[Rfam]
RNA sequence: UAAAUUACAAUGCUUAAUUCUUUUUUAAGAAGCGGGGGAACCAAUAUUUUGGGGUGAAUCAUUUUGAAGAACAACCCUUUGUUCUAAUCCAUCAGCUAACCUCGUAGGCCAAAAAGGGGAGUAUA
Number, nucleotide and partner (000 for none) at each position: 001u000002a000003a000004a000005u000006u000007a000008c000009a000010a000011u000012g109013c108014u107015u000016a000017a000018u031019u030020c029021u000022u000023u000024u000025u000026u000027a000028a000029g020030a019031a018032g105033c104034g103035g102036g101037g100038g000039a000040a000041c000042c051043a050044a000045u000046a000047u000048u000049u000050u043051g042052g090053g089054g088055u000056g000057a000058a000059u000060c066061a065062u000063u000064u000065u061066g060067a000068a000069g084070a083071a082072c081073a000074a000075c000076c000077c000078u000079u000080u000081g072082u071083u070084c069085u000086a000087a000088u054089c053090c052091a000092u000093c000094a000095g000096c000097u000098a000099a000100c037101c036102u035103c034104g033105u032106a000107g014108g013109c012110c000111a000112a000113a000114a000115a000116g000117g000118g000119g000120a000121g000122u000123a000124u000125a000

c-di-AMP riboswitch aptamer (ydaO/yuaA leader): a 125-nucleotide sequence from Tissierella creatinophila. The pairing is the family consensus, mapped onto this sequence. Taxonomically the source falls in Tissierella creatinophila (Bacteria, Bacillota, Tissierellia, Tissierella). Rfam links the family to the GO terms cyclic-di-AMP binding and regulation of gene expression.